[Rfam]
A member of the RNA family "LOOT RNA", 110 nucleotides long.

RNA sequence: GACCUAAACCAGAAGUGGCAAGGUCAUCAAAUCUACAACGAAGAACAGCUCGUCAUUGGGUACUCUUCGUUGUAGUUGUAGCUGGAAACGGCUACAGGGGCGCAAGCUCC
Numbered sequence: 001g002a003c004c005u006a007a008a009c010c011a012g013a014a015g016u017g018g019c020a021a022g023g024u025c026a027u028c029a030a031a032u033c034u035a036c037a038a039c040g041a042a043g044a045a046c047a048g049c050u051c052g053u054c055a056u057u058g059g060g061u062a063c064u065c066u067u068c069g070u071u072g073u074a075g076u077u078g079u080a081g082c083u084g085g086a087a088a089c090g091g092c093u094a095c096a097g098g099g100g101c102g103c104a105a106g107c108u109c110c
Stems, first nucleotide, its partner, number of pairs: 001025004009018003033075011048061005077096008097110005

The base pairs follow the family's consensus structure, which is taken from published work. It is annotated as a small RNA.